The record is a 115-nucleotide RNA from Leersia perrieri, which matches "Small nucleolar RNA Z188" in Rfam. The match comes from Rfam's covariance-model search (112 bits). It is annotated as a C/D-box small nucleolar RNA. For this family Rfam cites "The high diversity of snoRNAs in plants: identification and comparative study of 120 snoRNA genes from Oryza sativa" (Chen et al., Nucleic Acids Res, 2003). The base pairs follow the family's consensus structure, which was predicted with PFOLD. Taxonomically the source falls in Leersia (Eukaryota, Streptophyta, Liliopsida, Oryzinae).
[Rfam]
RNA sequence: UCGUGCCAGUGAUGAUUAAAGAGCUAGUAAUGGUGAAUUCGAUGAAUGUGCUCGCGUGCUACUGGACGCGCAGUUGUGGUGAUAUGCAUUCUUACGCAGUUUAUCUGAGGCGCGC
Numbered sequence: 001u002c003g004u005g006c007c008a009g010u011g012a013u014g015a016u017u018a019a020a021g022a023g024c025u026a027g028u029a030a031u032g033g034u035g036a037a038u039u040c041g042a043u044g045a046a047u048g049u050g051c052u053c054g055c056g057u058g059c060u061a062c063u064g065g066a067c068g069c070g071c072a073g074u075u076g077u078g079g080u081g082a083u084a085u086g087c088a089u090u091c092u093u094a095c096g097c098a099g100u101u102u103a104u105c106u107g108a109g110g111c112g113c114g115c
Stems, first nucleotide, its partner, number of pairs: 002114006